TPP riboswitch aptamer (THI element): a 139-nucleotide sequence from Cocleimonas flava. A search with the family's covariance model found it, with a score of 63 bits.
RNA sequence: UAUCACUUGUCGGGGUGUUCACCCCUUUAUGAUUAUUUUUCAGUCUUUACGGAAAAUAUGAUGGAGGGAUGAGCUGAGAUUUUUACCCGUUGCACCUGAUACGGUUCAUACCGUCGUAGGAAACAAGAAGAUAGUAUUU
Numbered sequence: 001u002a003u004c005a006c007u008u009g010u011c012g013g014g015g016u017g018u019u020c021a022c023c024c025c026u027u028u029a030u031g032a033u034u035a036u037u038u039u040u041c042a043g044u045c046u047u048u049a050c051g052g053a054a055a056a057u058a059u060g061a062u063g064g065a066g067g068g069a070u071g072a073g074c075u076g077a078g079a080u081u082u083u084u085a086c087c088c089g090u091u092g093c094a095c096c097u098g099a100u101a102c103g104g105u106u107c108a109u110a111c112c113g114u115c116g117u118a119g120g121a122a123a124c125a126a127g128a129a130g131a132u133a134g135u136a137u138u139u
Stems, first nucleotide, its partner, number of pairs: 006127005011089004017074005095120004101114004
Lineage of the source: Bacteria > Pseudomonadati > Pseudomonadota > Gammaproteobacteria > Cocleimonas. Rfam's curators write: Vitamin B(1) in its active form thiamin pyrophosphate (TPP) is an essential coenzyme that is synthesised by coupling of pyrimidine and thiazole moieties in bacteria. The previously detected thiamin-regulatory element, thi box was extended, resulting in a new, highly conserved RNA secondary structure, the THI element, which is widely distributed in eubacteria and also occurs in some archaea. Analysis of operon structures identified a large number of new candidate thiamin-regulated genes, mostly transporters, in various prokaryotic organisms.